[Rfam]
RNA sequence: UAAAGAUAAAUGAGGGUCAUAGCAGAAGCAGUCACAUUGUGAUCCAUGUCAGGUGAUACCUGUCAAUUCUGCU
Numbered sequence: 001u002a003a004a005g006a007u008a009a010a011u012g013a014g015g016g017u018c019a020u021a022g023c024a025g026a027a028g029c030a031g032u033c034a035c036a037u038u039g040u041g042a043u044c045c046a047u048g049u050c051a052g053g054u055g056a057u058a059c060c061u062g063u064c065a066a067u068u069c070u071g072c073u
Stems, first nucleotide, its partner, number of pairs: 014045005021073007028040003050062005
RNA: Mammalian CPEB3 ribozyme